The family of this 143-nucleotide RNA sequence from Dipodomys ordii is "Small nucleolar RNA SNORA57". The base pairs follow the family's consensus structure, which was predicted with PFOLD. NCBI's taxonomy places the organism under Eukaryota, Sarcopterygii, Amniota, Heteromyidae, Dipodomys. U99 belongs to the H/ACA class of snoRNAs which are thought to guide the sites of modification of uridines to pseudouridines, the target for this family is unknown. Gene Ontology terms of the family: RNA processing and nucleolus. A search with the family's covariance model found it, with a score of 94 bits. Rfam classes the family as an H/ACA-box small nucleolar RNA.

RNA sequence: CUUCCAUUUCUUGGUGGGACCAGAUAAAUAGGCCUGUUCUCUGAUAUGUAUGGAAGCAGAAGAGAAGGGCUCAAGCCUUCUUGGUGUCAUGUUUUUGGGGCUGGUGAUUUCUCCUUUGCUGGUUCUAUCCUCAAAUGCCACUG
Number, nucleotide and partner (000 for none) at each position: 001c056002u055003u054004c053005c052006a000007u000008u000009u000010c000011u000012u000013g000014g000015u043016g041017g040018g039019a038020c000021c036022a035023g034024a000025u000026a000027a000028a000029u000030a000031g000032g000033c000034c023035u022036g021037u000038u019039c018040u017041c016042u000043g015044a000045u000046a000047u000048g000049u000050a000051u000052g005053g004054a003055a002056g001057c000058a000059g000060a000061a000062g000063a000064g000065a000066a000067g000068g000069g000070c000071u000072c000073a000074a000075g000076c000077c000078u000079u000080c000081u000082u140083g139084g138085u137086g136087u135088c000089a000090u000091g000092u000093u000094u000095u000096u000097g000098g000099g000100g000101c122102u121103g120104g119105u118106g117107a116108u000109u000110u000111c000112u000113c000114c000115u000116u107117u106118g105119c104120u103121g102122g101123u000124u000125c000126u000127a000128u000129c000130c000131u000132c000133a000134a000135a087136u086137g085138c084139c083140a082141c000142u000143g000